[Rfam]
RNA sequence: CUGUGAAGGUCGUGCUGAUGUGCGACGGAAUCCACGAUUUUCGCAGAGAGUUUUUUUUAGACGUCCAUCGCACCGCAACGGCUCCGAAAGAGUCGUGCGGCCCGAACACGGGAGAGAACGCUGAGCGUUACAUU
Numbered sequence: 001c002u003g004u005g006a007a008g009g010u011c012g013u014g015c016u017g018a019u020g021u022g023c024g025a026c027g028g029a030a031u032c033c034a035c036g037a038u039u040u041u042c043g044c045a046g047a048g049a050g051u052u053u054u055u056u057u058u059a060g061a062c063g064u065c066c067a068u069c070g071c072a073c074c075g076c077a078a079c080g081g082c083u084c085c086g087a088a089a090g091a092g093u094c095g096u097g098c099g100g101c102c103c104g105a106a107c108a109c110g111g112g113a114g115a116g117a118a119c120g121c122u123g124a125g126c127g128u129u130a131c132a133u134u
Stems, first nucleotide, its partner, number of pairs: 001046012073100005079095006